[Rfam]
The family of this 67-nucleotide sequence is "tRNA". It is annotated as a transfer RNA. Its family is annotated with triplet codon-amino acid adaptor activity in the Gene Ontology.
RNA sequence: GUUAAUGUAGCUUAUAAUAAAGCAAAGCACUGAAAAUGCUUAGAUGGAUUCAAAAAUCCCAUAAACA
Numbered sequence: 001g002u003u004a005a006u007g008u009a010g011c012u013u014a015u016a017a018u019a020a021a022g023c024a025a026a027g028c029a030c031u032g033a034a035a036a037u038g039c040u041u042a043g044a045u046g047g048a049u050u051c052a053a054a055a056a057u058c059c060c061a062u063a064a065a066c067a
Base pairs, nucleotide, nucleotide: 001066002065003064005062006061007060010023011022012021013020025041026040027039028038029037046059047058048057049056